The family of this 77-nucleotide RNA sequence from Phaseolus vulgaris is "Small nucleolar RNA R12". The literature on the family includes a 2003 paper in Nucleic Acids Res by Chen et al., "The high diversity of snoRNAs in plants: identification and comparative study of 120 snoRNA genes from Oryza sativa". It scores 60 bits against the family's covariance model. Gene Ontology terms of the family: nucleolus and RNA processing. Rfam classes the family as a C/D-box small nucleolar RNA. The source organism's lineage runs through Eukaryota, Pentapetalae, rosids, Fabales and Phaseolus. snoR12 is a C/D box small nucleolar RNA, which acts as a methylation guide for 25S ribosomal RNA in plants. snoR12 has been alternatively named snoZ44 in Arabidopsis and snoZ131 in rice.
RNA sequence: UGUAGAAUGAUGAUAAAAUCAGACGGAUUCCCACUGAUAUUUUUAUGUGAUUUAACAACCAGCUACUACUGACAACA
Numbered sequence: 001u002g003u004a005g006a007a008u009g010a011u012g013a014u015a016a017a018a019u020c021a022g023a024c025g026g027a028u029u030c031c032c033a034c035u036g037a038u039a040u041u042u043u044u045a046u047g048u049g050a051u052u053u054a055a056c057a058a059c060c061a062g063c064u065a066c067u068a069c070u071g072a073c074a075a076c077a
Base pairs, nucleotide, nucleotide: 001077002076003075005073